[Rfam]
RNA sequence: UAGGUGGUAUCAGUUAUGAACCAUACUGUAAAAAGGACUUGUUGCUAUAGUAUUCCACAGUUUCAUAUCGAAUUAUAGCCGCUUAGAUCUUUUAAUGGACUGAGACGGGAGG
Numbered sequence: 001u002a003g004g005u006g007g008u009a010u011c012a013g014u015u016a017u018g019a020a021c022c023a024u025a026c027u028g029u030a031a032a033a034a035g036g037a038c039u040u041g042u043u044g045c046u047a048u049a050g051u052a053u054u055c056c057a058c059a060g061u062u063u064c065a066u067a068u069c070g071a072a073u074u075a076u077a078g079c080c081g082c083u084u085a086g087a088u089c090u091u092u093u094a095a096u097g098g099a100c101u102g103a104g105a106c107g108g109g110a111g112g
Base pairs, nucleotide, nucleotide: 001028002027003026004024005023006022007021008020010019011018079108080107081106082104083103084102085101086100088099089098090097
Shown here is a 112-nucleotide sequence from Pelosinus fermentans, a member of the family "pan motif". The family's RNA type in Rfam is cis-regulatory element.